[Rfam]
RNA sequence: UAAUGCACUGACUGUAAGUCGCUCUGGACAAGAGUGUCUGCUAAAUGAACUAAA
Dot-bracket structure: ............((((...((((((.....))))))..))).)...........
Shown here is a 54-nucleotide sequence from Hucho hucho, a member of the family "UnaL2 LINE 3' element".
The literature on the family includes a 2004 paper in RNA by Baba et al., "Solution structure of an RNA stem-loop derived from the 3' conserved region of eel LINE UnaL2".
NCBI's taxonomy places the organism under Eukaryota, Chordata, Actinopterygii, Neopterygii, Hucho.
The family's RNA type in Rfam is cis-regulatory element.
The family's consensus secondary structure is taken from published work.
It scores 55 bits against the family's covariance model.